Rfam assigns this 236-nucleotide RNA sequence from Actinomadura viridilutea to the family "Actinobacteria sRNA Ms_IGR-5". The pairing is the family consensus, mapped onto this sequence. A search with the family's covariance model found it, with a score of 102 bits. Rfam classes the family as a small RNA.
[Rfam]
RNA sequence: ACGCAGGAAAGGAGGUGGUCCUAGGCAUGAGUGACUGUAGGACUUGCGAGGUGGCUGUCCACUAGUCGCCGUCACGCCUUGGCACUACCGAUUCCGCGGACGAGCUAGCCGUCCACAGAAGACGUAGGCCGGUCGCGACGGUCGACCGGUGAAUACCAGGCAGUUACCGGGCCCCCGGACCGAUGGGCCGUCCACCCAUCACCCGCGUGAAGCGGAAGGUCCGGGGGUCUUCUCAU
Numbered sequence: 001a002c003g004c005a006g007g008a009a010a011g012g013a014g015g016u017g018g019u020c021c022u023a024g025g026c027a028u029g030a031g032u033g034a035c036u037g038u039a040g041g042a043c044u045u046g047c048g049a050g051g052u053g054g055c056u057g058u059c060c061a062c063u064a065g066u067c068g069c070c071g072u073c074a075c076g077c078c079u080u081g082g083c084a085c086u087a088c089c090g091a092u093u094c095c096g097c098g099g100a101c102g103a104g105c106u107a108g109c110c111g112u113c114c115a116c117a118g119a120a121g122a123c124g125u126a127g128g129c130c131g132g133u134c135g136c137g138a139c140g141g142u143c144g145a146c147c148g149g150u151g152a153a154u155a156c157c158a159g160g161c162a163g164u165u166a167c168c169g170g171g172c173c174c175c176c177g178g179a180c181c182g183a184u185g186g187g188c189c190g191u192c193c194a195c196c197c198a199u200c201a202c203c204c205g206c207g208u209g210a211a212g213c214g215g216a217a218g219g220u221c222c223g224g225g226g227g228u229c230u231u232c233u234c235a236u
Stems, first nucleotide, its partner, number of pairs: 014059006060151004065146002068142004073137001075135001169230013182200006